RNA sequence: UUCGCCGAGGGGCGCUGCGACCGUGACGCAAGGGCACGGCCAGGCUCGACGAACCGGCGGCAGGCCCCUGCCGCGCACCAACGGCGCCCGAUGUCC
Numbered sequence: 001u002u003c004g005c006c007g008a009g010g011g012g013c014g015c016u017g018c019g020a021c022c023g024u025g026a027c028g029c030a031a032g033g034g035c036a037c038g039g040c041c042a043g044g045c046u047c048g049a050c051g052a053a054c055c056g057g058c059g060g061c062a063g064g065c066c067c068c069u070g071c072c073g074c075g076c077a078c079c080a081a082c083g084g085c086g087c088c089c090g091a092u093g094u095c096c
Stems, first nucleotide, its partner, number of pairs: 002052003006048003021039005
The family of this 96-nucleotide RNA sequence from Aerolutibacter daejeonensis is "SAH (S-adenosyl-L-homocysteine) riboswitch aptamer".
Rfam 15.1 lists 1,354 matches to the family in 1,132 species.
NCBI's taxonomy places the organism under Bacteria, Pseudomonadota, Gammaproteobacteria, Lysobacterales, Aerolutibacter daejeonensis.
The base pairs follow the family's consensus structure, which is taken from published work.